[Rfam]
Nucleotides: 084
Base pairs, nucleotide, nucleotide: 001039002038003037004036005035006034007033020032021031022030046070047069048068049067050066
Number, partner (000 for none) and nucleotide at each position: 001039g002038g003037g004036g005035a006034a007033c008000a009000a010000a011000a012000g013000u014000a015000g016000c017000c018000a019000c020032a021031c022030c023000u024000c025000c026000a027000c028000g029000u030022g031021g032020u033007g034006u035005u036004c037003c038002c039001u040000g041000g042000g043000c044000a045000a046070c047069g048068g049067u050066g051000c052000a053000g054000u055000u056000c057000u058000u059000u060000g061000g062000a063000a064000c065000g066050c067049a068048u069047c070046g071000g072000c073000u074000a075000a076000g077000a078000g079000g080000c081000u082000a083000c084000u